Overview: A member of the RNA family "LOOT RNA", 114 nucleotides long. The base pairs follow the family's consensus structure, which is taken from published work.
RNA sequence: GGCCUAACCCGGUAGUUUACUAACGGUAUGGUCGAAAAACAUGAGACAUAAACAACCCAUUAUCAGGGCGUGUCUCAUGUUGCGUAGGGAAACUUACGUAGGGACUUCGGUCCC
Number, nucleotide and partner (000 for none) at each position: 001g033002g032003c031004c030005u000006a000007a000008c000009c026010c025011g024012g000013u022014a021015g020016u000017u000018u000019a000020c015021u014022a013023a000024c011025g010026g009027u000028a000029u000030g004031g003032u002033c001034g000035a000036a000037a000038a000039a000040c079041a078042u077043g076044a075045g074046a073047c072048a071049u070050a000051a000052a000053c000054a000055a000056c068057c067058c066059a000060u000061u000062a000063u000064c000065a000066g058067g057068g056069c000070g049071u048072g047073u046074c045075u044076c043077a042078u041079g040080u000081u100082g099083c098084g097085u096086a095087g094088g093089g000090a000091a000092a000093c088094u087095u086096a085097c084098g083099u082100a081101g114102g113103g112104a111105c110106u000107u000108c000109g000110g105111u104112c103113c102114c101